Glycine riboswitch aptamer: a 101-nucleotide sequence from Streptacidiphilus jiangxiensis.
NCBI's taxonomy places the organism under Bacteria, Actinomycetota, Actinomycetes, Kitasatosporales, Streptacidiphilus.
RNA sequence: CGAGCACGUGCGGGAGAGUCCGGAUGCCCCGAAGGGGUGACCGGCGCCGAAGGAGCAACUCCUCCCCGGAAUCUCUCAGGCCGAAGUACCGCGCAGGCGAG
Dot-bracket structure: .......((((((......((((.................)))).(((((..(((...((.......))...))))).))).......)))))).......